[Rfam]
RNA sequence: CUCACAGAGCCCAUUGGCAUUCUGUCCACCUCCAUGUUGGAGUGAACUUCUUUAGAACCCCAUGGGAGACCCUGUGGGAAGACGGAGGUGGACAUCCUGCCAACUGGGUUCUGUCGG
Numbered sequence: 001c002u003c004a005c006a007g008a009g010c011c012c013a014u015u016g017g018c019a020u021u022c023u024g025u026c027c028a029c030c031u032c033c034a035u036g037u038u039g040g041a042g043u044g045a046a047c048u049u050c051u052u053u054a055g056a057a058c059c060c061c062a063u064g065g066g067a068g069a070c071c072c073u074g075u076g077g078g079a080a081g082a083c084g085g086a087g088g089u090g091g092a093c094a095u096c097c098u099g100c101c102a103a104c105u106g107g108g109u110u111c112u113g114u115c116g117g
Base pairs, nucleotide, nucleotide: 011107014103015102016101017100018099019098023094024093025092026091027090028089029088030087031086032085033084

MIR394 microRNA precursor family: a 117-nucleotide sequence from Spirodela intermedia. For this family Rfam cites "Computational identification of plant microRNAs and their targets, including a stress-induced miRNA" (Jones-Rhoades and Bartel, Mol Cell, 2004). Its family is annotated with miRNA-mediated post-transcriptional gene silencing and RISC complex in the Gene Ontology. The family's consensus secondary structure was predicted with WAR.